[Rfam]
RNA sequence: CCUCUUGAAUUCACAGAACGCGCGGCCUAGAUUAGAGGUGUCCUUCGGGACUAUGGACAUAAACGCGCUCGUAAUAAGCGGUUCGGACCCGGGGGCGGUACCCGGCGGCUCCACCAAAACCCGUUCAUUUGACGGUUCUGGGGUCGAAAUAGGAUCGACGAACGUCUAAAGGUGUAGCUUUGUUUCGGCUGACUGCCACCGUUAUCGGCGUAAAAUGUACAAUUGCAAAUGACAAUCGUGCUCCAAUGGCGAUGGCCGCGUAAGCGACCGGAACUGUUGAAAAUUAAGUCCUUGCGCUUAGCGGUGUAAGGCGGGGUUCGCAGGCACCUGGCAACAGAAGCCUGCACU
Numbered sequence: 001c002c003u004c005u006u007g008a009a010u011u012c013a014c015a016g017a018a019c020g021c022g023c024g025g026c027c028u029a030g031a032u033u034a035g036a037g038g039u040g041u042c043c044u045u046c047g048g049g050a051c052u053a054u055g056g057a058c059a060u061a062a063a064c065g066c067g068c069u070c071g072u073a074a075u076a077a078g079c080g081g082u083u084c085g086g087a088c089c090c091g092g093g094g095g096c097g098g099u100a101c102c103c104g105g106c107g108g109c110u111c112c113a114c115c116a117a118a119a120c121c122c123g124u125u126c127a128u129u130u131g132a133c134g135g136u137u138c139u140g141g142g143g144u145c146g147a148a149a150u151a152g153g154a155u156c157g158a159c160g161a162a163c164g165u166c167u168a169a170a171g172g173u174g175u176a177g178c179u180u181u182g183u184u185u186c187g188g189c190u191g192a193c194u195g196c197c198a199c200c201g202u203u204a205u206c207g208g209c210g211u212a213a214a215a216u217g218u219a220c221a222a223u224u225g226c227a228a229a230u231g232a233c234a235a236u237c238g239u240g241c242u243c244c245a246a247u248g249g250c251g252a253u254g255g256c257c258g259c260g261u262a263a264g265c266g267a268c269c270g271g272a273a274c275u276g277u278u279g280a281a282a283a284u285u286a287a288g289u290c291c292u293u294g295c296g297c298u299u300a301g302c303g304g305u306g307u308a309a310g311g312c313g314g315g316g317u318u319c320g321c322a323g324g325c326a327c328c329u330g331g332c333a334a335c336a337g338a339a340g341c342c343u344g345c346a347c348u
Stems, first nucleotide, its partner, number of pairs: 040051004055185005065178002067175002070172001079164002083161003089105005106146007186201003192211002195209003314329004320345006
RNA: Alphaproteobacteria transfer-messenger RNA
Organism: Sulfitobacter brevis